Nucleotides: 138
Stems, first nucleotide, its partner, number of pairs: 001138004043103004048098004
Number, partner (000 for none) and nucleotide at each position: 001138g002137u003136u004135u005000u006000a007000u008000g009000a010000u011000g012000a013000a014000a015000c016000u017000c018000a019000u020000g021000c022000g023000u024000g025000u026000c027000a028000a029000c030000u031000g032000a033000u034000c035000c036000c037000a038000g039000a040000c041000c042000a043103c044102c045101c046100u047000u048098g049097g050096g051095c052000u053000c054000c055000u056000g057000g058000u059000u060000g061000c062000u063000g064000g065000u066000u067000g068000g069000c070000g071000u072000u073000c074000u075000g076000u077000c078000a079000u080000c081000c082000a083000g084000g085000u086000u087000u088000u089000a090000c091000u092000g093000g094000g095051g096050c097049c098048u099000c100046g101045g102044g103043g104000c105000u106000c107000u108000g109000u110000g111000g112000g113000c114000a115000u116000g117000a118000u119000c120000u121000g122000a123000c124000u125000g126000u127000c128000a129000a130000g131000c132000u133000g134000a135004a136003a137002a138001c
The record is a 138-nucleotide RNA sequence from Esox lucius, which matches "Small nucleolar RNA SNORD10" in Rfam.
NCBI's taxonomy places the organism under Eukaryota, Deuterostomia, Teleostomi, Euteleosteomorpha, Esox.
The match comes from Rfam's covariance-model search (72 bits).
Its family is annotated with nucleolus and RNA processing in the Gene Ontology.
The literature on the family includes a 2001 paper in EMBO J by Huttenhofer et al., "RNomics: an experimental approach that identifies 201 candidates for novel, small, non-messenger RNAs in mouse".
Rfam classes the family as a C/D-box small nucleolar RNA.